[Rfam]
RNA sequence: CUAAAACUAGCUAUUUGUCAUUUUCUAAUUGGUUCUUAGUAUGUUAAAGUUUUCUAAGAAUCAAUUAGAAAAUAAUAAAUGGCUAGUUUUGA
Numbered sequence: 001c002u003a004a005a006a007c008u009a010g011c012u013a014u015u016u017g018u019c020a021u022u023u024u025c026u027a028a029u030u031g032g033u034u035c036u037u038a039g040u041a042u043g044u045u046a047a048a049g050u051u052u053u054c055u056a057a058g059a060a061u062c063a064a065u066u067a068g069a070a071a072a073u074a075a076u077a078a079a080u081g082g083c084u085a086g087u088u089u090u091g092a
Stems, first nucleotide, its partner, number of pairs: 002091017020073020
A member of the RNA family "MIR6288 microRNA precursor family" from Prunus avium, 92 nucleotides long. It scores 96 bits against the family's covariance model. Pairs were carried over by alignment from the consensus structure, which was predicted with RNAalifold.